[Rfam]
RNA: 6S / SsrS RNA
RNA sequence: AAAGUCCUGAGGUGUACGUGAUUCGACCUAACAGUUUUGACCGAACAUUUACACAUAGGGAGCUUGGAGUUUUCAAGUGGCGUACAUGCCUCAUUUAAAUUUGGCAAUCCUGCCAAUAGAGGACGUACAAUAUUUGAAACAGAGCACCCACCUGCCUUUAGCGGGUUCAAAACAAGGGGGAAAUUACGACACGGAUCGGGACUUUC
Numbered sequence: 001a002a003a004g005u006c007c008u009g010a011g012g013u014g015u016a017c018g019u020g021a022u023u024c025g026a027c028c029u030a031a032c033a034g035u036u037u038u039g040a041c042c043g044a045a046c047a048u049u050u051a052c053a054c055a056u057a058g059g060g061a062g063c064u065u066g067g068a069g070u071u072u073u074c075a076a077g078u079g080g081c082g083u084a085c086a087u088g089c090c091u092c093a094u095u096u097a098a099a100u101u102u103g104g105c106a107a108u109c110c111u112g113c114c115a116a117u118a119g120a121g122g123a124c125g126u127a128c129a130a131u132a133u134u135u136g137a138a139a140c141a142g143a144g145c146a147c148c149c150a151c152c153u154g155c156c157u158u159u160a161g162c163g164g165g166u167u168c169a170a171a172a173c174a175a176g177g178g179g180g181a182a183a184u185u186a187c188g189a190c191a192c193g194g195a196u197c198g199g200g201a202c203u204u205u206c
Stems, first nucleotide, its partner, number of pairs: 002204009012192004017188003034173007041165002058149003062145004067140001072138007084126002089122004